[Rfam]
RNA sequence: CCGUGCUAAGUGGGGGAGUAGCGGAACCCUGUACCUGCAAUCCGCUCUAGCAGGGCCUAGAUCCGUUUUUGAGGCUGUCCACAUUAUGGUCUGCCUUUUAUAUUCUCGUGUUGAGAGUUCGGUCCUAUGCAAUAGGACGUUGUGAACCAUGUCAGGACCGGAAGGUAGCAGCAUUAAGCAACUCAUCUUAUGUGCCGUAGGGUUGCCGAACUUGAGCGAGGUAUAGAAGUAACGCUUGAUGUGGCUGUCGAGAUAACGGUGCACGG
Numbered sequence: 001c002c003g004u005g006c007u008a009a010g011u012g013g014g015g016g017a018g019u020a021g022c023g024g025a026a027c028c029c030u031g032u033a034c035c036u037g038c039a040a041u042c043c044g045c046u047c048u049a050g051c052a053g054g055g056c057c058u059a060g061a062u063c064c065g066u067u068u069u070u071g072a073g074g075c076u077g078u079c080c081a082c083a084u085u086a087u088g089g090u091c092u093g094c095c096u097u098u099u100a101u102a103u104u105c106u107c108g109u110g111u112u113g114a115g116a117g118u119u120c121g122g123u124c125c126u127a128u129g130c131a132a133u134a135g136g137a138c139g140u141u142g143u144g145a146a147c148c149a150u151g152u153c154a155g156g157a158c159c160g161g162a163a164g165g166u167a168g169c170a171g172c173a174u175u176a177a178g179c180a181a182c183u184c185a186u187c188u189u190a191u192g193u194g195c196c197g198u199a200g201g202g203u204u205g206c207c208g209a210a211c212u213u214g215a216g217c218g219a220g221g222u223a224u225a226g227a228a229g230u231a232a233c234g235c236u237u238g239a240u241g242u243g244g245c246u247g248u249c250g251a252g253a254u255a256a257c258g259g260u261g262c263a264c265g266g
Stems, first nucleotide, its partner, number of pairs: 001266006008058001010056002012030004019023001034054005063259003067256002070253001073249003077245001079244008088235001092231002096228006104221002107218003115213009124201006130192002133190005139182005149174004157166003